[Rfam]
RNA: mir-181 microRNA precursor family
Organism: Leptobrachium leishanense
RNA sequence: CUUCCUUGGUGAACAUUCAACGCUGUCGGUGAGUUUGGUAUACAAAGGCAAACCAUCGAUCGUUGAUUGUACAUUAAGGGCAG
Numbered sequence: 001c002u003u004c005c006u007u008g009g010u011g012a013a014c015a016u017u018c019a020a021c022g023c024u025g026u027c028g029g030u031g032a033g034u035u036u037g038g039u040a041u042a043c044a045a046a047g048g049c050a051a052a053c054c055a056u057c058g059a060u061c062g063u064u065g066a067u068u069g070u071a072c073a074u075u076a077a078g079g080g081c082a083g
Stems, first nucleotide, its partner, number of pairs: 001083002004079005014069002017066006025060007033053004